[Rfam]
RNA sequence: GAGGCAGAAUCCUGAAAAGCCUAAAAAGAGUAGGGA
Number, nucleotide and partner (000 for none) at each position: 001g000002a022003g021004g020005c019006a000007g000008a000009a000010u000011c035012c034013u033014g000015a000016a000017a000018a000019g005020c004021c003022u002023a000024a000025a000026a000027a000028g000029a000030g000031u000032a000033g013034g012035g011036a000
This 36-nucleotide RNA sequence belongs to the Rfam family "DUF805b RNA". The family is grouped with related families in Rfam's "DUF805 clan". By type it is a cis-regulatory element. It is one of the family's seed sequences.